[Rfam]
RNA sequence: GGUCAAUGAUGACAAAGAAGUUUUCUGAGGGCACAGGGAAAUUCCACCCCAUUACCCUUUGGCUCCCAGCAGUCCCUAUUCUGUCAUGCCAUAGUAGAGCAGUGAUGGAGGAAGAGAUUGCUGACAGUUUGGGAUUAAUUCAGUUCCAGUUCUCCACAGAAAAAGGAGUUGUGGCACCAAAUGUAAUCCAACAAACCUGGUGAAGAGGAGCUCAUGGUGAUGGGGUGUUCUCACUAGCUGUGCAUGAUCAAAGGUUUUCAAGCUGAGACC
Numbered sequence: 001g002g003u004c005a006a007u008g009a010u011g012a013c014a015a016a017g018a019a020g021u022u023u024u025c026u027g028a029g030g031g032c033a034c035a036g037g038g039a040a041a042u043u044c045c046a047c048c049c050c051a052u053u054a055c056c057c058u059u060u061g062g063c064u065c066c067c068a069g070c071a072g073u074c075c076c077u078a079u080u081c082u083g084u085c086a087u088g089c090c091a092u093a094g095u096a097g098a099g100c101a102g103u104g105a106u107g108g109a110g111g112a113a114g115a116g117a118u119u120g121c122u123g124a125c126a127g128u129u130u131g132g133g134a135u136u137a138a139u140u141c142a143g144u145u146c147c148a149g150u151u152c153u154c155c156a157c158a159g160a161a162a163a164a165g166g167a168g169u170u171g172u173g174g175c176a177c178c179a180a181a182u183g184u185a186a187u188c189c190a191a192c193a194a195a196c197c198u199g200g201u202g203a204a205g206a207g208g209a210g211c212u213c214a215u216g217g218u219g220a221u222g223g224g225g226u227g228u229u230c231u232c233a234c235u236a237g238c239u240g241u242g243c244a245u246g247a248u249c250a251a252a253g254g255u256u257u258u259c260a261a262g263c264u265g266a267g268a269c270c
Stems, first nucleotide, its partner, number of pairs: 001270004036249002045227008063210004067123007080109008089099001131189001133188005146174003152168004